[Rfam]
This 368-nucleotide RNA from Liquorilactobacillus ghanensis belongs to the Rfam family "Bacterial RNase P class B". Its Rfam clan is "RNaseP clan".

RNA sequence: AGUUUCUGGUGAUCGCGGUUUGCUUUAUGCAGACUGAGGAAAGUCCAAGCUUGCACAAGCUGAGAUGCUUGUAGUGAUCGUGCUCGCUGAAAAAAUAAGGCGAGGUACCUUUUAGGUAACGGCAAAUAAAAAGGCUAAGGCUUCGGCUAUGCCUGAGUAGUUUUGAAAAGUGCCACAGUGACGAAGCAGUAAUGGAAACAUUGCUGAUGGAACGCGGUAAACCCCACGAGCAGGUAACCCAAAUUAUGGUAGGGGCGCUUCAUGCCGGAAAUGAACUAAGCAUGGGGGCAGACAUUUGUCUGGAGAUAGAUGAUUACCACCGAUUCUGGUUCCUGGAUCAGAUGACGUACGGAACGUGGCUUAUAGAG
Dot-bracket structure: ...(((.(((((((.((((((.........))))))....[[[.[[[.[(((((((((((......)))))).....(((((((((((..........))))))((((((...))))).)((.((((....((((...(((....)))..)))).....))))......(((((............((((((((....)))))))).........)))..))))))))))))))...(((...........)))...(((((((................))))))).(((((....))))).........))))))).(....((((((......))))))....).......].]]]]]]...)))
It scores 317 bits against the family's covariance model. It is annotated as a ribozyme. NCBI's taxonomy places the organism under Bacteria, Bacillota, Lactobacillales, Lactobacillaceae, Liquorilactobacillus ghanensis. Its family is annotated with dimeric ribonuclease P complex, tRNA processing and ribonuclease P activity in the Gene Ontology. From the family's description: Ribonuclease P (RNase P) is a ubiquitous endoribonuclease, found in archaea, bacteria and eukarya as well as chloroplasts and mitochondria.